[Rfam]
RNA sequence: GUGCGGAGUGUACGUAUGAACUCUGCUCGAAGCGAAACUCUGGUGUACUUCCCCGAUAUCAGAGUGGGUUCUUCGUGCAGGGCUCUGUGUACACCCCGCUUUUAA
Numbered sequence: 001g002u003g004c005g006g007a008g009u010g011u012a013c014g015u016a017u018g019a020a021c022u023c024u025g026c027u028c029g030a031a032g033c034g035a036a037a038c039u040c041u042g043g044u045g046u047a048c049u050u051c052c053c054c055g056a057u058a059u060c061a062g063a064g065u066g067g068g069u070u071c072u073u074c075g076u077g078c079a080g081g082g083c084u085c086u087g088u089g090u091a092c093a094c095c096c097c098g099c100u101u102u103u104a105a
Stems, first nucleotide, its partner, number of pairs: 010092007018085002021082006028075005034069001037065010

Shown here is a 105-nucleotide RNA sequence from Corynebacterium pseudotuberculosis, a member of the family "mraW RNA". Pairs were carried over by alignment from the consensus structure, which is taken from published work. The match comes from Rfam's covariance-model search (56 bits). It is annotated as a cis-regulatory element.